[Rfam]
RNA sequence: GAUCCAAGGGCGCUGAUCCGUUCGGCAGGAGCGGGGGACCCACUUUCGGACCCGGCAACAGCCGAGUCCUUGGGGUGUAGCCGGCAAUCCGGGCUCGCGAGAGCACGGCGCGCCGGCCGGGCAGUCCCAGCCCGAACCCGACAGCUCACCCCGCAGGCGCAGGGAAGGAUCGGA
Numbered sequence: 001g002a003u004c005c006a007a008g009g010g011c012g013c014u015g016a017u018c019c020g021u022u023c024g025g026c027a028g029g030a031g032c033g034g035g036g037g038a039c040c041c042a043c044u045u046u047c048g049g050a051c052c053c054g055g056c057a058a059c060a061g062c063c064g065a066g067u068c069c070u071u072g073g074g075g076u077g078u079a080g081c082c083g084g085c086a087a088u089c090c091g092g093g094c095u096c097g098c099g100a101g102a103g104c105a106c107g108g109c110g111c112g113c114c115g116g117c118c119g120g121g122c123a124g125u126c127c128c129a130g131c132c133c134g135a136a137c138c139c140g141a142c143a144g145c146u147c148a149c150c151c152c153g154c155a156g157g158c159g160c161a162g163g164g165a166a167g168g169a170u171c172g173g174a
Stems, first nucleotide, its partner, number of pairs: 011159004017030003031154006041072002073139003081116004119133004
The family of this 174-nucleotide RNA from Pseudofrankia inefficax is "c-di-AMP riboswitch aptamer (ydaO/yuaA leader)". About the family: This family represents a conserved RNA structure found upstream of the ydaO and yuaA genes in Bacillus subtilis and related genes in other bacteria. Lineage of the source: Bacteria > Actinomycetota > Actinomycetes > Frankiaceae > Pseudofrankia. The pairing is the family consensus, mapped onto this sequence.